A member of the RNA family "Makes More Granules Regulator RNA (mmgR)" from Sphingomonas jeddahensis, 79 nucleotides long. Clan: suhB sRNA clan. It scores 47 bits against the family's covariance model. About the family: SuhB later renamed mmgR (makes more granules regulator) was a putative non-coding RNA found multiple times in the Agrobacterium tumefaciens genome and related alpha-proteobacteria. Other non-coding RNAs uncovered in the same analysis include: speF, ybhL, metA, and serC.Several studies inSinorhizobium meliloti showed that suhB element is indeed a non-coding RNA:firstly it was detected on Northern blot and called Sm8RNA, secondly in an RNAseq study referred to as SmelC689.The mutant phenotype's (strain lacking the small RNA) cytoplasm contains higher content of polyhydroxybutyrate (PBH)storage granules than wild type strain. The sRNA is required to limit the PBH intracellular accumulation when the nitrogen-fixing Sinorhizobium meliloti is under condition of surplus carbon in relation to nitrogen. It has been renamed to mmgR. Further study confirmed that mmgR fine-tunes the regulation of PBH storage.Northern blot confirmed the expression of the sRNA in other rhizobia species. Pairs were carried over by alignment from the consensus structure.

RNA sequence: GGACCACGCCUUUCAGGCAUCCUCUCCUAAAAACUUUCAUGGCCGAUCCCUUUCGGGGUCGGCCUUUUUUCUUGCGUGU
Numbered sequence: 001g002g003a004c005c006a007c008g009c010c011u012u013u014c015a016g017g018c019a020u021c022c023u024c025u026c027c028u029a030a031a032a033a034c035u036u037u038c039a040u041g042g043c044c045g046a047u048c049c050c051u052u053u054c055g056g057g058g059u060c061g062g063c064c065u066u067u068u069u070u071c072u073u074g075c076g077u078g079u
Stems, first nucleotide, its partner, number of pairs: 008018004041064009